[Rfam]
RNA sequence: CGGCCGGCGUCCGCCGGUCGUCUACCCGGGUACCUGACACGGCCCGAGAGA
Dot-bracket structure: ((((((((....))))))))(((.(.(((((..........))))).))))
RNA: L17-Actino-Proteobacteria ribosomal protein leader